This 130-nucleotide RNA from Nephila pilipes belongs to the Rfam family "U11 spliceosomal RNA". On this family, see Montzka and Steitz, Proc Natl Acad Sci U S A 1988: "Additional low-abundance human small nuclear ribonucleoproteins: U11, U12, etc". Rfam 15.1 lists 2,595 matches to the family in 1,202 species. The source organism's lineage runs through Eukaryota, Bilateria, Ecdysozoa, Panarthropoda and Nephila. It is annotated as a spliceosomal small nuclear RNA.
[Rfam]
RNA sequence: AAAAAGGGUGCCUGCCUGCUAUAUGGCACAUGAUAUCUUCGGAUGUCGUGCAGAAUCGCUAGCAAGAGAUUCUGGGCACGUAAUUUUUGUAAUUUGGAGCUGCUGAUUACCAUUGCUAAUUGGCGCUCCU
Number, nucleotide and partner (000 for none) at each position: 001a000002a000003a000004a000005a000006g000007g000008g079009u078010g077011c076012c075013u028014g027015c026016c025017u000018g000019c000020u000021a000022u000023a000024u000025g016026g015027c014028a013029c050030a049031u048032g047033a046034u045035a044036u043037c042038u000039u000040c000041g000042g037043a036044u035045g034046u033047c032048g031049u030050g029051c074052a073053g072054a071055a070056u069057c068058g000059c000060u000061a000062g000063c000064a000065a000066g000067a000068g057069a056070u055071u054072c053073u052074g051075g012076g011077c010078a009079c008080g000081u000082a000083a000084u000085u000086u000087u000088u000089g000090u000091a000092a000093u000094u000095u000096g000097g128098a127099g126100c125101u000102g124103c123104u122105g121106a120107u000108u118109a117110c000111c115112a000113u000114u000115g111116c000117u109118a108119a000120u106121u105122g104123g103124c102125g100126c099127u098128c097129c000130u000